[Rfam]
RNA sequence: GACAAUAAAACAUCGGCUCCUCAUAUAAAACUGAGAAUAUGGCUCAGAAGUUUCUACCCAGCACCGUAAAUGACUGGACUAUGAGGGAAGUAGGAUCGUGU
Number, nucleotide and partner (000 for none) at each position: 001g000002a000003c000004a000005a000006u000007a000008a000009a000010a000011c000012a000013u000014c000015g000016g000017c000018u087019c086020c085021u084022c083023a082024u081025a080026u000027a000028a000029a000030a000031c047032u046033g045034a044035g043036a000037a000038u000039a000040u000041g000042g000043c035044u034045c033046a032047g031048a000049a000050g000051u000052u000053u000054c000055u000056a000057c000058c077059c076060a075061g074062c072063a071064c000065c000066g000067u000068a000069a000070a000071u063072g062073a000074c061075u060076g059077g058078a000079c000080u025081a024082u023083g022084a021085g020086g019087g018088a000089a000090g000091u000092a000093g000094g000095a000096u000097c000098g000099u000100g000101u000
This 101-nucleotide RNA sequence from Virgibacillus pantothenticus belongs to the Rfam family "Purine riboswitch aptamer". Lineage of the source: Bacteria > Bacillati > Bacillota > Caryophanales > Virgibacillus. The match comes from Rfam's covariance-model search (77 bits).